[Rfam]
RNA sequence: UGGUUGUUACCAAGGCAUUUAGCAUGCAAUUUCUCAUUUGCUGUGGACACGACGAGAAGAGAAUUCCUCACUUGGUUUUCUGUCUGCCACCUUGCUAGCGAUCAGCCCACUGGGAACAUUU
Numbered sequence: 001u002g003g004u005u006g007u008u009a010c011c012a013a014g015g016c017a018u019u020u021a022g023c024a025u026g027c028a029a030u031u032u033c034u035c036a037u038u039u040g041c042u043g044u045g046g047a048c049a050c051g052a053c054g055a056g057a058a059g060a061g062a063a064u065u066c067c068u069c070a071c072u073u074g075g076u077u078u079u080c081u082g083u084c085u086g087c088c089a090c091c092u093u094g095c096u097a098g099c100g101a102u103c104a105g106c107c108c109a110c111u112g113g114g115a116a117c118a119u120u121u
Stems, first nucleotide, its partner, number of pairs: 003053005010046003026041004067114004074107004085100003
Background:
A member of the RNA family "Small nucleolar RNA SNORA32", 121 nucleotides long. Gene Ontology terms of the family: RNA processing and nucleolus. Rfam's curators write: ACA32 is a member of the H/ACA class of snoRNA that guide the sites of modification of uridines to pseudouridines.